The record is a 65-nucleotide RNA from Dromaius novaehollandiae, which matches "Selenocysteine insertion sequence 1" in Rfam. Pairs were carried over by alignment from the consensus structure, which is taken from published work. Rfam's curators write: The incorporation of selenocysteine into a protein sequence is directed by an in-frame UGA codon (usually a stop codon) within the coding region of the mRNA. Selenoprotein mRNAs contain a conserved secondary structure in the 3' UTR that is required for the distinction of UGA stop from UGA selenocysteine. The selenocysteine insertion sequence (SECIS) is around 60 nt in length and adopts a hairpin structure which is sufficiently well-defined and conserved to act as a computational screen for selenoprotein genes. The organism belongs to Dromaius, within Eukaryota. Rfam classes the family as a cis-regulatory element.
RNA sequence: CGCGCUCCAUGACGGGAGCCGCCGAAACGUCUGCGGACACGUGGCUGCUCCCAGAUGCCCGCGCG
Numbered sequence: 001c002g003c004g005c006u007c008c009a010u011g012a013c014g015g016g017a018g019c020c021g022c023c024g025a026a027a028c029g030u031c032u033g034c035g036g037a038c039a040c041g042u043g044g045c046u047g048c049u050c051c052c053a054g055a056u057g058c059c060c061g062c063g064c065g
Stems, first nucleotide, its partner, number of pairs: 001065005014052006021045003029038003